[Rfam]
RNA sequence: AAGCUCAAGGGCGUCCAAAUCUUGCCGAUGGCAUUUCCCUGUACGUUAGCGAUCAUGGGUAAAACCUAGCAACUUGGAGUUUGGCUGGCUGUUAGUACGUCGACGGAACGCAGCCGGCU
Numbered sequence: 001a002a003g004c005u006c007a008a009g010g011g012c013g014u015c016c017a018a019a020u021c022u023u024g025c026c027g028a029u030g031g032c033a034u035u036u037c038c039c040u041g042u043a044c045g046u047u048a049g050c051g052a053u054c055a056u057g058g059g060u061a062a063a064a065c066c067u068a069g070c071a072a073c074u075u076g077g078a079g080u081u082u083g084g085c086u087g088g089c090u091g092u093u094a095g096u097a098c099g100u101c102g103a104c105g106g107a108a109c110g111c112a113g114c115c116g117g118c119u
Base pairs, nucleotide, nucleotide: 001082002081003080004079005078006077008075009074010073011046012045013044014043016041017040023033024032025031026030049070050069057066058065084118085117086116087115088114089113090112091111092110098105099104
A member of the RNA family "Flavobacterium-1 RNA", 119 nucleotides long.
It is one of the family's seed sequences.